[Rfam]
RNA sequence: UUUCUAGUCAGGCUCCUGUCCAGAGUCCAGCUCUCAGCUGGAUCCAGCCUCUGGUCAGGGGCUUGACUAUAAG
Number, nucleotide and partner (000 for none) at each position: 001u000002u000003u000004c000005u000006a000007g067008u066009c065010a000011g063012g062013c060014u059015c000016c000017u057018g056019u000020c054021c053022a052023g051024a050025g000026u000027c041028c040029a039030g038031c037032u000033c000034u000035c000036a000037g031038c030039u029040g028041g027042a000043u000044c000045c000046a000047g000048c000049c000050u024051c023052u022053g021054g020055u000056c018057a017058g000059g014060g013061g000062c012063u011064u000065g009066a008067c007068u000069a000070u000071a000072a000073g000
Overview
Shown here is a 73-nucleotide RNA from Nannospalax galili, a member of the family "mir-344 microRNA precursor family". The match comes from Rfam's covariance-model search (66 bits). The source organism's lineage runs through Eukaryota, Eumetazoa, Theria, Spalacidae and Nannospalax. The family's consensus secondary structure was predicted with RNAalifold.